mir-25 microRNA precursor family: a 69-nucleotide RNA from Corvus brachyrhynchos. Lineage of the source: Eukaryota > Vertebrata > Dinosauria > Aves > Corvus. Rfam links the family to the GO terms miRNA-mediated post-transcriptional gene silencing and RISC complex. A reference for the family is Linsen et al. (2010), "Small RNA expression and strain specificity in the rat", BMC Genomics.
Nucleotides: 069
Base pairs, nucleotide, nucleotide: 001069002068003067004066006064007063008062009061014056015055016054017053019051020050021049022048023047028042029041030040031039
Number, partner (000 for none) and nucleotide at each position: 001069c002068u003067c004066c005000a006064g007063u008062c009061c010000u011000g012000u013000g014056a015055u016054g017053c018000a019051g020050a021049g022048c023047c024000a025000a026000g027000g028042g029041c030040a031039g032000a033000c034000a035000g036000g037000u038000c039031c040030u041029g042028c043000c044000c045000u046000u047023g048022g049021c050020u051019c052000u053017g054016c055015a056014u057000c058000a059000c060000a061009g062008g063007a064006c065000u066004g067003g068002a069001g